[Rfam]
RNA sequence: GACAGCCUGAGAUAAUGAGCUGACGCCUAAAGCCAAUGCGGUGAACCAGAUUAUUUUUUUCGUCAUUGUGUCAUCAUCAAUGUUAAGGGUCUUUUUCUUUGUCGGGAAAAAGACCGUUGAUCACGGCCUGUGAAUGGCAAUCAAGCCACCGUCUUUUCUGUAAACAGGUUCUCUUGUGCAAAUCGCGUUUCAUGGACAGACGGUGUCUUGCCCUGAUGUCCGGUUUUUUCCGUCAGCGCAGUGCCCGGCUGUUCUGUUGCGGCGCGUCUCCCCACAUAGCGCGGGAUGAAUGACACGACCCACACCACGAUGUUGAGGAAGGCCAGAAUAAUAUUGCGUAUGACUGGCGGUGCGUAAUCCGCCAAGCGCAGGUAGCCGCGAAAGCCGAGUGCCAGUACAUCAACCAGACUUUCGACUGGUUUAUCCUGCGGGAAGCUGUCUUGCCAGAGCGCCCAGGUAUCGGCGCGGGCAAAGGUACAU
Numbered sequence: 001g002a003c004a005g006c007c008u009g010a011g012a013u014a015a016u017g018a019g020c021u022g023a024c025g026c027c028u029a030a031a032g033c034c035a036a037u038g039c040g041g042u043g044a045a046c047c048a049g050a051u052u053a054u055u056u057u058u059u060u061c062g063u064c065a066u067u068g069u070g071u072c073a074u075c076a077u078c079a080a081u082g083u084u085a086a087g088g089g090u091c092u093u094u095u096u097c098u099u100u101g102u103c104g105g106g107a108a109a110a111a112g113a114c115c116g117u118u119g120a121u122c123a124c125g126g127c128c129u130g131u132g133a134a135u136g137g138c139a140a141u142c143a144a145g146c147c148a149c150c151g152u153c154u155u156u157u158c159u160g161u162a163a164a165c166a167g168g169u170u171c172u173c174u175u176g177u178g179c180a181a182a183u184c185g186c187g188u189u190u191c192a193u194g195g196a197c198a199g200a201c202g203g204u205g206u207c208u209u210g211c212c213c214u215g216a217u218g219u220c221c222g223g224u225u226u227u228u229u230c231c232g233u234c235a236g237c238g239c240a241g242u243g244c245c246c247g248g249c250u251g252u253u254c255u256g257u258u259g260c261g262g263c264g265c266g267u268c269u270c271c272c273c274a275c276a277u278a279g280c281g282c283g284g285g286a287u288g289a290a291u292g293a294c295a296c297g298a299c300c301c302a303c304a305c306c307a308c309g310a311u312g313u314u315g316a317g318g319a320a321g322g323c324c325a326g327a328a329u330a331a332u333a334u335u336g337c338g339u340a341u342g343a344c345u346g347g348c349g350g351u352g353c354g355u356a357a358u359c360c361g362c363c364a365a366g367c368g369c370a371g372g373u374a375g376c377c378g379c380g381a382a383a384g385c386c387g388a389g390u391g392c393c394a395g396u397a398c399a400u401c402a403a404c405c406a407g408a409c410u411u412u413c414g415a416c417u418g419g420u421u422u423a424u425c426c427u428g429c430g431g432g433a434a435g436c437u438g439u440c441u442u443g444c445c446a447g448a449g450c451g452c453c454c455a456g457g458u459a460u461c462g463g464c465g466c467g468g469g470c471a472a473a474g475g476u477a478c479a480u
Stems, first nucleotide, its partner, number of pairs: 001440006015400003019396004024391003032385002037380006045373003050332008058321004063316003066298009075288004082121005088115012124284001126282002128279005135274003144208002147205008156196003159192002162190004167184004173178001209240003213236004221232003241265005246259004335370005345364006402421006424433003441472005449466005
RNA: Soft rot Enterobacteriaceae Rev 41 sRNA
Organism: Pectobacterium atrosepticum